[Rfam]
RNA sequence: GGUGCGGAAGCCGAAAAGCAUACAGAGUAGGUA
Numbered sequence: 001g002g003u004g005c006g007g008a009a010g011c012c013g014a015a016a017a018g019c020a021u022a023c024a025g026a027g028u029a030g031g032u033a
Stems, first nucleotide, its partner, number of pairs: 002021004010032003
RNA: DUF805b RNA
Organism: Parvicella tangerina